[Rfam]
RNA sequence: UGGGCGGUAUCUGCUUAGAACUGCACCGUUUGUUUAGAUGGUUGGUUGGGUAGGUGGUUUGUUCGCAAGACUAAGCUGUGACAUAUCUCCGCUUGGAGCCGGUAGGACCGAGACGGGUUG
Numbered sequence: 001u002g003g004g005c006g007g008u009a010u011c012u013g014c015u016u017a018g019a020a021c022u023g024c025a026c027c028g029u030u031u032g033u034u035u036a037g038a039u040g041g042u043u044g045g046u047u048g049g050g051u052a053g054g055u056g057g058u059u060u061g062u063u064c065g066c067a068a069g070a071c072u073a074a075g076c077u078g079u080g081a082c083a084u085a086u087c088u089c090c091g092c093u094u095g096g097a098g099c100c101g102g103u104a105g106g107a108c109c110g111a112g113a114c115g116g117g118u119u120g
Base pairs, nucleotide, nucleotide: 001028002027003026004024005023006022007021008020010019011018089116090115091114092112093111094110095109096108099106100105